[Rfam]
RNA sequence: GUUGCUUCAUAUGGUGAACUCUCCUCUUUAACAUACCAUGGAGAUGUUUAUGUUUCCGAAGCAUAGAUUAACUAAUGCCAGAAUUAAACAGCACAGUGCUCUUUUCUUUCAUUGCACUGUGUUACCUGUCUCCUGGUACAUUG
Numbered sequence: 001g002u003u004g005c006u007u008c009a010u011a012u013g014g015u016g017a018a019c020u021c022u023c024c025u026c027u028u029u030a031a032c033a034u035a036c037c038a039u040g041g042a043g044a045u046g047u048u049u050a051u052g053u054u055u056c057c058g059a060a061g062c063a064u065a066g067a068u069u070a071a072c073u074a075a076u077g078c079c080a081g082a083a084u085u086a087a088a089c090a091g092c093a094c095a096g097u098g099c100u101c102u103u104u105u106c107u108u109u110c111a112u113u114g115c116a117c118u119g120u121g122u123u124a125c126c127u128g129u130c131u132c133c134u135g136g137u138a139c140a141u142u143g
Base pairs, nucleotide, nucleotide: 003063004062005061006060007059008058015050016049017048018047019046020044021043022042023041024040077137078136079135080134081133083131090123091122092121094119095118096117097116098115
RNA: small nucleolar RNA snoR137
Organism: Turnera subulata